[Rfam]
RNA sequence: GUCCUGCUUCCAAACUGUCCCCGUAUGGAGUGCGUGCCUGUAGCGGGCUAGGAAGUAGAGCCGCU
Numbered sequence: 001g002u003c004c005u006g007c008u009u010c011c012a013a014a015c016u017g018u019c020c021c022c023g024u025a026u027g028g029a030g031u032g033c034g035u036g037c038c039u040g041u042a043g044c045g046g047g048c049u050a051g052g053a054a055g056u057a058g059a060g061c062c063g064c065u
Base pairs, nucleotide, nucleotide: 001061002060004058005057006056007055008054009053010052011051016034017033018032019030021028022027036048037047038046039045

This 65-nucleotide sequence belongs to the Rfam family "DUF3800-IX RNA". It is annotated as a small RNA. Actinobacteria, Firmicutes (1 example), Nitrospirae, Proteobacteria, Verrucomicrobia (1 example).